[Rfam]
RNA: Bacterial RNase P class A
Organism: Enteractinococcus coprophilus
RNA sequence: GAUGGAGCUGCGGAUGAUCGCGACUUACGUCGAGGAAAGUCCGGACACCACAGGGCAGGAUGGUGGGUAACACCCACUCGGAGCAAUCCGCAGGCCAGUGCCACAGAAAGUAGACCGCCCCAGGUGCUGGGGUAAGGGUGAAAGGGUGGAGUAAGAGACCACCAGCGGGCGUGGUGACACGCUCGGCUCGGUAAACCCCAUCCGGUGCAAGAUCAAGCAGAACACGUUAUGAGGCGGCCCGCCCAGUGUUCGGGUUGAUCGCUUGAGUCCCGCGGCGACGCGGUGACCAGAUAGAUGAUCAUCACCCGGAUGAGGAAUCGUUCGGGCACAGAAUCCGGCUUAUAGCACUCCAUCCCGU
Numbered sequence: 001g002a003u004g005g006a007g008c009u010g011c012g013g014a015u016g017a018u019c020g021c022g023a024c025u026u027a028c029g030u031c032g033a034g035g036a037a038a039g040u041c042c043g044g045a046c047a048c049c050a051c052a053g054g055g056c057a058g059g060a061u062g063g064u065g066g067g068u069a070a071c072a073c074c075c076a077c078u079c080g081g082a083g084c085a086a087u088c089c090g091c092a093g094g095c096c097a098g099u100g101c102c103a104c105a106g107a108a109a110g111u112a113g114a115c116c117g118c119c120c121c122a123g124g125u126g127c128u129g130g131g132g133u134a135a136g137g138g139u140g141a142a143a144g145g146g147u148g149g150a151g152u153a154a155g156a157g158a159c160c161a162c163c164a165g166c167g168g169g170c171g172u173g174g175u176g177a178c179a180c181g182c183u184c185g186g187c188u189c190g191g192u193a194a195a196c197c198c199c200a201u202c203c204g205g206u207g208c209a210a211g212a213u214c215a216a217g218c219a220g221a222a223c224a225c226g227u228u229a230u231g232a233g234g235c236g237g238c239c240c241g242c243c244c245a246g247u248g249u250u251c252g253g254g255u256u257g258a259u260c261g262c263u264u265g266a267g268u269c270c271c272g273c274g275g276c277g278a279c280g281c282g283g284u285g286a287c288c289a290g291a292u293a294g295a296u297g298a299u300c301a302u303c304a305c306c307c308g309g310a311u312g313a314g315g316a317a318u319c320g321u322u323c324g325g326g327c328a329c330a331g332a333a334u335c336c337g338g339c340u341u342a343u344a345g346c347a348c349u350c351c352a353u354c355c356c357g358u
Base pairs, nucleotide, nucleotide: 001354002353003352004351005350006349007348009347010346011345012343013303014302015301016300017299018298019297021032022031023030024029037341038340039339041338042337043336044335045334046207047206048205049204053240054239055238056237058203059202060201061200062199063077064076065075066074067073078092079090080089081088082087093198094197098196099195100192101191102190115137116136117133118132119131120130121129122128123127145163146162147161148160149159165187166185167184168183169182170181171180172179173178211260212259213258214257220251221250222249223248224247225246231244233243234242235241268285270283271282272281273280274279